[Rfam]
RNA sequence: AUGAUCGUGAGGUCAUGGCUGAAGGAAGCCCAAGGCGAAAUCGCAAGGCGAUGAACAAGAACCGGAUAUGAGGUGUGAUCUAGACGGGGCCAGCGGGCAUGUGACUGUUAAGCCCUCCAUCUGCAACGGGUCUAGGUUUUAUAAAUCCGGUGUUUACGCGAGGAAAGUUAAGUGU
Numbered sequence: 001a002u003g004a005u006c007g008u009g010a011g012g013u014c015a016u017g018g019c020u021g022a023a024g025g026a027a028g029c030c031c032a033a034g035g036c037g038a039a040a041u042c043g044c045a046a047g048g049c050g051a052u053g054a055a056c057a058a059g060a061a062c063c064g065g066a067u068a069u070g071a072g073g074u075g076u077g078a079u080c081u082a083g084a085c086g087g088g089g090c091c092a093g094c095g096g097g098c099a100u101g102u103g104a105c106u107g108u109u110a111a112g113c114c115c116u117c118c119a120u121c122u123g124c125a126a127c128g129g130g131u132c133u134a135g136g137u138u139u140u141a142u143a144a145a146u147c148c149g150g151u152g153u154u155u156a157c158g159c160g161a162g163g164a165a166a167g168u169u170a171a172g173u174g175u
Base pairs, nucleotide, nucleotide: 001016002015003014004013005012006011028175029174031172035168036167041161042160043159044158046155047154048153049152050151062150063149064148065147066146067145073142074141075140077138078137079136080135081134082133083132087115088114089113090112093108094107095106096105
A member of the RNA family "Group II catalytic intron D1-D4-3" from Nitrincola tibetensis, 175 nucleotides long. On this family, see Bonen and Vogel, Trends Genet 2001: "The ins and outs of group II introns". Group II introns are found in rRNA, tRNA and mRNA of organelles in fungi, plants and protists, and also in mRNA in bacteria.